[Rfam]
Rfam assigns this 76-nucleotide sequence from Aedes aegypti to the family "mir-16 microRNA precursor family". It scores 38 bits against the family's covariance model. The base pairs follow the family's consensus structure, which was predicted with PFOLD.
RNA sequence: AUUAUACUAAAUCAGCACUUAAUAACGGUAAAAUAUUGAUGUUUUACCGUUAUUAAGUGCUGAUUUAGUGUAAAAU
Numbered sequence: 001a002u003u004a005u006a007c008u009a010a011a012u013c014a015g016c017a018c019u020u021a022a023u024a025a026c027g028g029u030a031a032a033a034u035a036u037u038g039a040u041g042u043u044u045u046a047c048c049g050u051u052a053u054u055a056a057g058u059g060c061u062g063a064u065u066u067a068g069u070g071u072a073a074a075a076u
Base pairs, nucleotide, nucleotide: 001076002075003074005072006071007070010069011064012063013062014061015060016059017058018057019056021054022053023052024051025050026049027048028047